[Rfam]
RNA: mir-30 microRNA precursor family
Organism: Echeneis naucrates
RNA sequence: UCUGGGGCUGUAAACAUCCCCGACUGGAAGCUGUCUAUUCACAGAGCUUUCAGUCUGAUGUUUGCUGCUGCCGA
Numbered sequence: 001u002c003u004g005g006g007g008c009u010g011u012a013a014a015c016a017u018c019c020c021c022g023a024c025u026g027g028a029a030g031c032u033g034u035c036u037a038u039u040c041a042c043a044g045a046g047c048u049u050u051c052a053g054u055c056u057g058a059u060g061u062u063u064g065c066u067g068c069u070g071c072c073g074a
Base pairs, nucleotide, nucleotide: 002073004071006069008067010065011064012063013062014061015060016059017058018057023054024053025052026051027050028049029048030047031046032045